[Rfam]
RNA sequence: CGCUUUUUUCGCCCAGGCGGAGCUCGACCGCCCACACAAAUAAUGGUGGAUUUCAUCCAUAACAAUAAGGCGUUAUAUGGUGUUGAGGCGAUUUGUAGGAUUUUACCGAUCUCAGCU
Dot-bracket structure: ...............(((((.......)))))..............................................(.((.......(.((.((((....)))).)).).)).).
Numbered sequence: 001c002g003c004u005u006u007u008u009u010c011g012c013c014c015a016g017g018c019g020g021a022g023c024u025c026g027a028c029c030g031c032c033c034a035c036a037c038a039a040a041u042a043a044u045g046g047u048g049g050a051u052u053u054c055a056u057c058c059a060u061a062a063c064a065a066u067a068a069g070g071c072g073u074u075a076u077a078u079g080g081u082g083u084u085g086a087g088g089c090g091a092u093u094u095g096u097a098g099g100a101u102u103u104u105a106c107c108g109a110u111c112u113c114a115g116c117u
Stems, first nucleotide, its partner, number of pairs: 016032005079116001081114002090111001092109002095106004